[Rfam]
Shown here is a 100-nucleotide sequence from Nestor notabilis, a member of the family "Small nucleolar RNA SNORD16". Taxonomically the source falls in Nestor (Eukaryota, Coelurosauria, Aves, Neoaves). Its Rfam clan is "SNORD16 clan". The family has 5 seed sequences and 1,321 matches in Rfam 15.1. On this family, see Huttenhofer et al., EMBO J 2001: "RNomics: an experimental approach that identifies 201 candidates for novel, small, non-messenger RNAs in mouse". It is annotated as a C/D-box small nucleolar RNA. The family's consensus secondary structure was predicted with PFOLD.
RNA sequence: UGCCGUGAUGUUGUAAUUUGCGUCCUACCCUGUGCCGGGUGACAGUUGCCUGCUGUCAGUGUCCUGGUGCAGGUGGUUGACGAACACUUAAAGCUGAGCA
Dot-bracket structure: (((.................((((.....(((((....(.(((((.......)))))......)...)))))......))))...............)))
Numbered sequence: 001u002g003c004c005g006u007g008a009u010g011u012u013g014u015a016a017u018u019u020g021c022g023u024c025c026u027a028c029c030c031u032g033u034g035c036c037g038g039g040u041g042a043c044a045g046u047u048g049c050c051u052g053c054u055g056u057c058a059g060u061g062u063c064c065u066g067g068u069g070c071a072g073g074u075g076g077u078u079g080a081c082g083a084a085c086a087c088u089u090a091a092a093g094c095u096g097a098g099c100a
Stems, first nucleotide, its partner, number of pairs: 001100003021082004030072005039064001041057005